MIR9563 microRNA precursor family: a 125-nucleotide RNA from Brassica oleracea.
[Rfam]
RNA sequence: AGAAUAUAAAAACCCGAUUCUUAAUUUUUAACUAAAAAUGCUAAGAGUCGGCUCUUAAAUAAGAGAUUUAAGAGUCGACUCUUAACUUUUUUAAUUAAAAAUUAAGAGUCUGAUUCUUAUAUUCU
Numbered sequence: 001a002g003a004a005u006a007u008a009a010a011a012a013c014c015c016g017a018u019u020c021u022u023a024a025u026u027u028u029u030a031a032c033u034a035a036a037a038a039u040g041c042u043a044a045g046a047g048u049c050g051g052c053u054c055u056u057a058a059a060u061a062a063g064a065g066a067u068u069u070a071a072g073a074g075u076c077g078a079c080u081c082u083u084a085a086c087u088u089u090u091u092u093a094a095u096u097a098a099a100a101a102u103u104a105a106g107a108g109u110c111u112g113a114u115u116c117u118u119a120u121a122u123u124c125u
Stems, first nucleotide, its partner, number of pairs: 001125009011115002014112001016110016033093006042084006
Pairs were carried over by alignment from the consensus structure, which was predicted with RNAalifold. It scores 97 bits against the family's covariance model.